A member of the RNA family "M-box riboswitch aptamer (ykoK leader)" from Antrihabitans cavernicola, 172 nucleotides long.
The family has 159 seed sequences and 1,095 matches in Rfam 15.1.
Pairs were carried over by alignment from the consensus structure.
M-box riboswitch, also know as ykoK leader is described as a metaloregulatory RNA that sense divalent metals and function as a genetic control element of genes related to divalent metal transport in bacteria. It was first reported upstream of the B.subtilis ykoK gene and genes with related functions in other bacteria.
The source organism's lineage runs through Bacteria, Actinomycetota, Actinomycetes, Nocardiaceae and Antrihabitans.

[Rfam]
Nucleotides: 172
Base pairs, nucleotide, nucleotide: 005168006167007166009164011158012157013096015153016152017151020147021146022145025143026142027141028140029139030138031137032136039114040113041112042111043110045074046073047072048071049070054065055064056063057062081105082104083103084102087099088098089097116129117128118127
Number, partner (000 for none) and nucleotide at each position: 001000a002000g003000g004000u005168g006167c007166c008000a009164u010000c011158g012157u013096u014000c015153g016152c017151u018000g019000a020147g021146g022145c023000u024000c025143c026142u027141u028140c029139g030138c031137g032136g033000a034000u035000a036000c037000a038000g039114g040113c041112c042111a043110g044000c045074g046073a047072c048071c049070c050000c051000g052000a053000a054065c055064g056063u057062c058000g059000a060000g061000a062057g063056a064055c065054g066000c067000c068000c069000c070049g071048g072047g073046u074045c075000a076000g077000g078000a079000c080000a081105g082104g083103c084102u085000u086000c087099c088098c089097c090000g091000g092000c093000u094000u095000a096013a097089g098088g099087g100000g101000u102084a103083g104082u105081c106000c107000c108000g109000a110043u111042u112041g113040g114039c115000u116129c117128c118127c119000g120000a121000u122000a123000a124000c125000u126000c127118g128117g129116g130000u131000u132000g133000a134000c135000g136032c137031c138030g139029c140028g141027a142026a143025g144000u145022g146021c147020c148000a149000a150000a151017g152016g153015u154000c155000u156000u157012a158011c159000g160000a161000g162000g163000a164009g165000a166007g167006g168005c169000g170000c171000c172000a
The match comes from Rfam's covariance-model search (122 bits).
The literature on the family includes a 2007 paper in Cell by Dann CE 3rd et al., "Structure and mechanism of a metal-sensing regulatory RNA".